[Rfam]
Nucleotides: 084
Base pairs, nucleotide, nucleotide: 001084002083003082004081007079008078009077012074013073014072015071017069018068019067020066021065022064024062025061026060027059028058029057030055031054032053033052
Number, partner (000 for none) and nucleotide at each position: 001084g002083g003082a004081a005000u006000a007079u008078u009077c010000u011000g012074g013073g014072a015071g016000a017069u018068g019067u020066a021065g022064u023000c024062u025061u026060u027059c028058a029057a030055a031054c032053a033052g034000a035000g036000c037000u038000c039000u040000g041000c042000a043000a044000g045000u046000a047000u048000a049000u050000a051000c052033c053032u054031g055030u056000a057029u058028u059027g060026g061025a062024a063000u064022a065021c066020u067019a068018c069017a070000g071015c072014u073013c074012c075000c076000c077009g078008a079007a080000c081004u082003u083002c084001c
Shown here is an 84-nucleotide RNA sequence from Chelydra serpentina, a member of the family "mir-1805 microRNA precursor family". The organism belongs to Chelydra, within Eukaryota. The base pairs follow the family's consensus structure, which was predicted with RNAalifold. Its family is annotated with RISC complex and miRNA-mediated post-transcriptional gene silencing in the Gene Ontology.